RNA sequence: GGAAGAACGUCGUUUCCGGUGAAACGUCUGGAUUUCAAAUCCAGGUGGGGCUGCCAGCAGUCCCGGGUAGGUUCAACUCCUAUGUUCUUCC
Numbered sequence: 001g002g003a004a005g006a007a008c009g010u011c012g013u014u015u016c017c018g019g020u021g022a023a024a025c026g027u028c029u030g031g032a033u034u035u036c037a038a039a040u041c042c043a044g045g046u047g048g049g050g051c052u053g054c055c056a057g058c059a060g061u062c063c064c065g066g067g068u069a070g071g072u073u074c075a076a077c078u079c080c081u082a083u084g085u086u087c088u089u090c091c
Base pairs, nucleotide, nucleotide: 001091002090003089004088005087006086007085008084009083011026012025013024014023015022016021027045028044029043030042031041032040047064048063049062050061051060068082069081070080071079

Record summary: This 91-nucleotide RNA from Shewanella pealeana belongs to the Rfam family "Selenocysteine transfer RNA". The base pairs follow the family's consensus structure, which is taken from published work. The family is grouped with related families in Rfam's "tRNA clan". NCBI's taxonomy places the organism under Bacteria, Pseudomonadota, Gammaproteobacteria, Shewanellaceae, Shewanella pealeana. Rfam links the family to the GO term triplet codon-amino acid adaptor activity. The sequence is in the family's curated seed alignment.